[Rfam]
RNA: ALIL pseudoknot
Organism: Azospirillum griseum
RNA sequence: GGCAUAUUUCGCGAUGGCGGAGCUCGACCGCCGACAGAAAUGAUGCUGGGCUUCAUUGACGCCCACCGCCAGGAAUACGGGGUCGAGCCGAUUUGCGACGUUUUGCCAAUCGCCCCG
Dot-bracket structure: ...............(((((.......))))).............................................(((((......((.((.((((....)))).)).)))))))